This 88-nucleotide RNA from Brassica carinata belongs to the Rfam family "Small nucleolar RNA snoR4a". The literature on the family includes a 2001 paper in RNA by Brown et al., "Multiple snoRNA gene clusters from Arabidopsis". The family's RNA type in Rfam is C/D-box small nucleolar RNA.
RNA sequence: UGAUAUGAUGAAAAGGCAUAAUUGUUUUGUGACACCCAGUCUGAAUCUGCUUUUGGCAGAAUGAGUGAUUUGCCAUGCCUUCUGAUCC
Numbered sequence: 001u002g003a004u005a006u007g008a009u010g011a012a013a014a015g016g017c018a019u020a021a022u023u024g025u026u027u028u029g030u031g032a033c034a035c036c037c038a039g040u041c042u043g044a045a046u047c048u049g050c051u052u053u054u055g056g057c058a059g060a061a062u063g064a065g066u067g068a069u070u071u072g073c074c075a076u077g078c079c080u081u082c083u084g085a086u087c088c
Stems, first nucleotide, its partner, number of pairs: 002087002015074004